[Rfam]
RNA sequence: UCUGCAAAGGGCAAACCUCGCGAAAGCGGGGGACGCAAAGUCACCGGUCUACCGGAUCACCAAGCAGUUGAUCCCAUGACGGCAGGACUGCCAGAA
Dot-bracket structure: (.((......((...((((((....))))))..[))..((((.(.((((............................))).]).)))))..))..)
Rfam assigns this 96-nucleotide RNA sequence from Noviherbaspirillum pedocola to the family "c-di-GMP-I-GGC riboswitch aptamer". It scores 62 bits against the family's covariance model. Rfam 15.1 lists 1,298 matches to the family in 717 species. The source organism's lineage runs through Bacteria, Pseudomonadota, Betaproteobacteria, Burkholderiales and Noviherbaspirillum.